[Rfam]
RNA sequence: AGUCGUCGUAGCGACUAUAAAAAGGCUUUUAAGCUACGAGCGUUGUAAGAGGCGGGUUUUCCUCUUACAGGUGGCA
Dot-bracket structure: [[[[.((((((.]]]]........[[[.....[)))))).].((((((((((........))))))))))..]]].
RNA: Pistol ribozyme
Organism: Bacillus phage vB_BceH_LY2